[Rfam]
RNA sequence: AAGUGAAAUGAUGGCACAUCAUCUUUCGGGACUGACCUGAAAUGAAGAGAAUACUCUCGCUGAUCACUU
Numbered sequence: 001a002a003g004u005g006a007a008a009u010g011a012u013g014g015c016a017c018a019u020c021a022u023c024u025u026u027c028g029g030g031a032c033u034g035a036c037c038u039g040a041a042a043u044g045a046a047g048a049g050a051a052u053a054c055u056c057u058c059g060c061u062g063a064u065c066a067c068u069u
Base pairs, nucleotide, nucleotide: 001069002068003067004066005065006064

This 69-nucleotide RNA from Fukomys damarensis belongs to the Rfam family "Small nucleolar RNA SNORD2". It is annotated as a C/D-box small nucleolar RNA. Its family is annotated with nucleolus and RNA processing in the Gene Ontology.